A member of the RNA family "Gammaproteobacterial sRNA STnc100" from Citrobacter phage Chris1, 207 nucleotides long. The source organism's lineage runs through Viruses, Duplodnaviria, Heunggongvirae, Uroviricota and Caudoviricetes.

[Rfam]
RNA sequence: CUAGUAAAAGCUCUCGUUUUGACGUAAUUGUGAUGAAUCCCCCUAAGCGGAGGGGUGAAACUGACAGUAAACAAAGUCAUGGAAUGACAUGCUUAGUGCACACGGGUCAUGGUUUGUCAGCCAAAGGUCCACCGGGAGGCACCCGGCAUCACGUUAAUCAAAAUACUUCUUUUCAGGCCCACUCCAUGGAAUGGGCCUUUUUCUUGC
Numbered sequence: 001c002u003a004g005u006a007a008a009a010g011c012u013c014u015c016g017u018u019u020u021g022a023c024g025u026a027a028u029u030g031u032g033a034u035g036a037a038u039c040c041c042c043c044u045a046a047g048c049g050g051a052g053g054g055g056u057g058a059a060a061c062u063g064a065c066a067g068u069a070a071a072c073a074a075a076g077u078c079a080u081g082g083a084a085u086g087a088c089a090u091g092c093u094u095a096g097u098g099c100a101c102a103c104g105g106g107u108c109a110u111g112g113u114u115u116g117u118c119a120g121c122c123a124a125a126g127g128u129c130c131a132c133c134g135g136g137a138g139g140c141a142c143c144c145g146g147c148a149u150c151a152c153g154u155u156a157a158u159c160a161a162a163a164u165a166c167u168u169c170u171u172u173u174c175a176g177g178c179c180c181a182c183u184c185c186a187u188g189g190a191a192u193g194g195g196c197c198u199u200u201u202u203c204u205u206g207c
Stems, first nucleotide, its partner, number of pairs: 014157001016155001030152006040055005064093001065091001096103002104130004110124001112122001132146005166206001175198007183190001